Shown here is a 134-nucleotide sequence from Rhododendron simsii, a member of the family "Small nucleolar RNA snoR111". The family's RNA type in Rfam is H/ACA-box small nucleolar RNA.
RNA sequence: GAAAUUAAAGAACAGAUUAACAAAACACCCUGUCUGUUUCUUCAAACAUAGGAAAAGUAAAUAAAUGAUUUUGGCGAGUUAUCAUUUCACUCGUCACUCCUCGAAUUGAGGAUUCAAUUGUUGCUCAUCCAUAU
Numbered sequence: 001g002a003a004a005u006u007a008a009a010g011a012a013c014a015g016a017u018u019a020a021c022a023a024a025a026c027a028c029c030c031u032g033u034c035u036g037u038u039u040c041u042u043c044a045a046a047c048a049u050a051g052g053a054a055a056a057g058u059a060a061a062u063a064a065a066u067g068a069u070u071u072u073g074g075c076g077a078g079u080u081a082u083c084a085u086u087u088c089a090c091u092c093g094u095c096a097c098u099c100c101u102c103g104a105a106u107u108g109a110g111g112a113u114u115c116a117a118u119u120g121u122u123g124c125u126c127a128u129c130c131a132u133a134u
Stems, first nucleotide, its partner, number of pairs: 006044001008042004013036005073130002076126003081118002091112002094109003098105001
The family's consensus secondary structure was predicted with WAR.
Taxonomically the source falls in Rhododendron (Eukaryota, eudicotyledons, asterids, Ericales).
Its family is annotated with RNA processing and nucleolus in the Gene Ontology.
A search with the family's covariance model found it, with a score of 50 bits.